[Rfam]
RNA: small nucleolar RNA snoR143
RNA sequence: AUGCACUUGUCAUGUUUGUUUAGAGGAAAUGAUUCUGUUUCUACUUUCUCUUAAAUACAACAGUGCUUACAUAGAAUGCCUGGUUUACAUCUCUGUGAAUUAGGCAGCGGCCAGACAACCGUAGGGAUGGGUAUCCACAGACGGCGGUGUAUUUUUUCCGUUCUGUCUACUGAUUCCAUCUCACAUUU
Numbered sequence: 001a002u003g004c005a006c007u008u009g010u011c012a013u014g015u016u017u018g019u020u021u022a023g024a025g026g027a028a029a030u031g032a033u034u035c036u037g038u039u040u041c042u043a044c045u046u047u048c049u050c051u052u053a054a055a056u057a058c059a060a061c062a063g064u065g066c067u068u069a070c071a072u073a074g075a076a077u078g079c080c081u082g083g084u085u086u087a088c089a090u091c092u093c094u095g096u097g098a099a100u101u102a103g104g105c106a107g108c109g110g111c112c113a114g115a116c117a118a119c120c121g122u123a124g125g126g127a128u129g130g131g132u133a134u135c136c137a138c139a140g141a142c143g144g145c146g147g148u149g150u151a152u153u154u155u156u157u158c159c160g161u162u163c164u165g166u167c168u169a170c171u172g173a174u175u176c177c178a179u180c181u182c183a184c185a186u187u188u
Stems, first nucleotide, its partner, number of pairs: 003066004013059003019054002022051007030043002124182007133175001144164001145160003